[Rfam]
RNA sequence: UGCGUUUUUGCCCAGGCGGAGCUCGACCGCCGGCUCAAGUCCUGAAGGCAUAUGUCGACCAGUACCGGGAGGUGUAUGGGGUCGAGCCGAUCUGCAAGGUCCUGCGGAUAGCCCCG
Numbered sequence: 001u002g003c004g005u006u007u008u009u010g011c012c013c014a015g016g017c018g019g020a021g022c023u024c025g026a027c028c029g030c031c032g033g034c035u036c037a038a039g040u041c042c043u044g045a046a047g048g049c050a051u052a053u054g055u056c057g058a059c060c061a062g063u064a065c066c067g068g069g070a071g072g073u074g075u076a077u078g079g080g081g082u083c084g085a086g087c088c089g090a091u092c093u094g095c096a097a098g099g100u101c102c103u104g105c106g107g108a109u110a111g112c113c114c115c116g
Base pairs, nucleotide, nucleotide: 015031016030017029018028019027077116078115079114080113081112088111091108092107093106094105095104096103
Description: This 116-nucleotide sequence from Pandoraea thiooxydans belongs to the Rfam family "ALIL pseudoknot". The source organism's lineage runs through Bacteria, Pseudomonadati, Betaproteobacteria, Burkholderiales and Pandoraea.